[Rfam]
RNA sequence: AACGACCGGUCGGACCCGUAUGCCCAUGGCCCGCGAGCCCGACCUACAAGUGGAGGCUUCGAACUCCCACCUUCCGCCCUCAGGGCGGUAGGUCACCGGUCAGGCGGCCCCGCCCACGCGGCGGGCGGUCGCCCGAAAGCGCGCCCCGCGGUCCCCGUGGCGGUGCUCCGGUAGUUCGAGGAGCCCCGCCUGUGAUCGUCCGGGGCAUUUUUU
Numbered sequence: 001a002a003c004g005a006c007c008g009g010u011c012g013g014a015c016c017c018g019u020a021u022g023c024c025c026a027u028g029g030c031c032c033g034c035g036a037g038c039c040c041g042a043c044c045u046a047c048a049a050g051u052g053g054a055g056g057c058u059u060c061g062a063a064c065u066c067c068c069a070c071c072u073u074c075c076g077c078c079c080u081c082a083g084g085g086c087g088g089u090a091g092g093u094c095a096c097c098g099g100u101c102a103g104g105c106g107g108c109c110c111c112g113c114c115c116a117c118g119c120g121g122c123g124g125g126c127g128g129u130c131g132c133c134c135g136a137a138a139g140c141g142c143g144c145c146c147c148g149c150g151g152u153c154c155c156c157g158u159g160g161c162g163g164u165g166c167u168c169c170g171g172u173a174g175u176u177c178g179a180g181g182a183g184c185c186c187c188g189c190c191u192g193u194g195a196u197c198g199u200c201c202g203g204g205g206c207a208u209u210u211u212u213u
Stems, first nucleotide, its partner, number of pairs: 004101006012040002041094005048072001050070004054065002074088006103133005109125006143206006149198003156194003159190005165184005
Shown here is a 213-nucleotide RNA from Streptomyces sp. B93, a member of the family "Streptomyces RNA 1601". A search with the family's covariance model found it, with a score of 178 bits. Lineage of the source: Bacteria > Bacillati > Actinomycetota > Streptomycetaceae > Streptomyces. It is annotated as a small RNA.